Description:
The record is an 82-nucleotide RNA from Niallia taxi, which matches "c-di-GMP-I riboswitch aptamer" in Rfam. Rfam describes the family as follows. GEMM was predicted in a large-scale screen for bacterial structured RNA regulatory elements. A search with the family's covariance model found it, with a score of 67 bits. The base pairs follow the family's consensus structure, which is taken from published work. Lineage of the source: Bacteria > Bacillota > Caryophanales > Bacillaceae > Niallia.
RNA sequence: UCCAGACAAAGGCAAACCAUAUUGAAAAGAUGGGACGCAAAGUCACAGGUCUAAGGAAUUCUAUGAUGGCUGGACUACCUCG
Numbered sequence: 001u002c003c004a005g006a007c008a009a010a011g012g013c014a015a016a017c018c019a020u021a022u023u024g025a026a027a028a029g030a031u032g033g034g035a036c037g038c039a040a041a042g043u044c045a046c047a048g049g050u051c052u053a054a055g056g057a058a059u060u061c062u063a064u065g066a067u068g069g070c071u072g073g074a075c076u077a078c079c080u081c082g
Stems, first nucleotide, its partner, number of pairs: 012038002017033004022029002041076004046072003049067003056061001